[Rfam]
RNA: Group I catalytic intron
Organism: Blumeria graminis
RNA sequence: GUUUGUGGGUUAAUUCUUGGCCCUUUAUGUAUGAAAAUAUAUAAGUAUCAUACCGUCAAUUGCUGGGAUAUCUUAAUAUUUUUUCCCACAGUUUGAGAUUUUUAUCUGUUCUCGAAGCAGCCGGACGAGGGGAGGAAACAUAGACGUAGCAACUAGCCGACACGGGCUUUGCAGGUAAGGUCAAGCGAGCAACCUGCUUCGCUUACCCGGCGUAGGACUAUUCUGAGGCCAAGUAAAGUCGGAAUAAGUCCAAGUCGGACUAGUAAAAAUUAUACGAGCCGAGUAGGGAUGGGUCCUAGGUUCAACUAAAAGCUUUGCGAAAAAAAAAAUCUUUUUAUGCUUAGUAUCUGCAGCCAACUGGCUAAGAUCGGGAAGCCGGGGAAAAUUUUAAGACAAUCAGCAGGGAAGCUAAGAGUCGAGGGAUUCUUAGUACCUUCAGAGACUAAAAAUGGAAUACCCUCUGAUAUCGUAUAACUAGACGUUUAGGGGGGGGGGUAAAUAUAUAGUCCAAUCCUUUGUGUGAAUAAGGG
Numbered sequence: 001g002u003u004u005g006u007g008g009g010u011u012a013a014u015u016c017u018u019g020g021c022c023c024u025u026u027a028u029g030u031a032u033g034a035a036a037a038u039a040u041a042u043a044a045g046u047a048u049c050a051u052a053c054c055g056u057c058a059a060u061u062g063c064u065g066g067g068a069u070a071u072c073u074u075a076a077u078a079u080u081u082u083u084u085c086c087c088a089c090a091g092u093u094u095g096a097g098a099u100u101u102u103u104a105u106c107u108g109u110u111c112u113c114g115a116a117g118c119a120g121c122c123g124g125a126c127g128a129g130g131g132g133a134g135g136a137a138a139c140a141u142a143g144a145c146g147u148a149g150c151a152a153c154u155a156g157c158c159g160a161c162a163c164g165g166g167c168u169u170u171g172c173a174g175g176u177a178a179g180g181u182c183a184a185g186c187g188a189g190c191a192a193c194c195u196g197c198u199u200c201g202c203u204u205a206c207c208c209g210g211c212g213u214a215g216g217a218c219u220a221u222u223c224u225g226a227g228g229c230c231a232a233g234u235a236a237a238g239u240c241g242g243a244a245u246a247a248g249u250c251c252a253a254g255u256c257g258g259a260c261u262a263g264u265a266a267a268a269a270u271u272a273u274a275c276g277a278g279c280c281g282a283g284u285a286g287g288g289a290u291g292g293g294u295c296c297u298a299g300g301u302u303c304a305a306c307u308a309a310a311a312g313c314u315u316u317g318c319g320a321a322a323a324a325a326a327a328a329a330u331c332u333u334u335u336u337a338u339g340c341u342u343a344g345u346a347u348c349u350g351c352a353g354c355c356a357a358c359u360g361g362c363u364a365a366g367a368u369c370g371g372g373a374a375g376c377c378g379g380g381g382a383a384a385a386u387u388u389u390a391a392g393a394c395a396a397u398c399a400g401c402a403g404g405g406a407a408g409c410u411a412a413g414a415g416u417c418g419a420g421g422g423a424u425u426c427u428u429a430g431u432a433c434c435u436u437c438a439g440a441g442a443c444u445a446a447a448a449a450u451g452g453a454a455u456a457c458c459c460u461c462u463g464a465u466a467u468c469g470u471a472u473a474a475c476u477a478g479a480c481g482u483u484u485a486g487g488g489g490g491g492g493g494g495g496u497a498a499a500u501a502u503a504u505a506g507u508c509c510a511a512u513c514c515u516u517u518g519u520g521u522g523a524a525u526a527a528g529g530g
Base pairs, nucleotide, nucleotide: 005026007024008023009022011020013018050455051454053452054451056449061402062401063400064399065398066397071393072392073391074390075389403435404434411427439509441508442507443506444505445504457495458494459493460492461491462490465487515528516527517526518525519524